Shown here is a 148-nucleotide sequence from Paenibacillus albus, a member of the family "FMN riboswitch aptamer (RFN element)". The match comes from Rfam's covariance-model search (112 bits). Lineage of the source: Bacteria > Bacilli > Caryophanales > Paenibacillaceae > Paenibacillus.

[Rfam]
RNA sequence: AAUGAUCUUCGGGGCAGGUGAAAUUCCUGACCGGCGGUGAAGCUGUAAAGCAAAGCCCGCGACUCUCCGCACCGUCAACGAACGGUAUGGAGACUGACUUGGUGUGAAUCCAAGGCCGACGGUAUAGUCCGGAUGGGAGAAGAUCGUC
Numbered sequence: 001a002a003u004g005a006u007c008u009u010c011g012g013g014g015c016a017g018g019u020g021a022a023a024u025u026c027c028u029g030a031c032c033g034g035c036g037g038u039g040a041a042g043c044u045g046u047a048a049a050g051c052a053a054a055g056c057c058c059g060c061g062a063c064u065c066u067c068c069g070c071a072c073c074g075u076c077a078a079c080g081a082a083c084g085g086u087a088u089g090g091a092g093a094c095u096g097a098c099u100u101g102g103u104g105u106g107a108a109u110c111c112a113a114g115g116c117c118g119a120c121g122g123u124a125u126a127g128u129c130c131g132g133a134u135g136g137g138a139g140a141a142g143a144u145c146g147u148c
Stems, first nucleotide, its partner, number of pairs: 003146008016028003030128002032118002034060004055116002064093006098114005120131003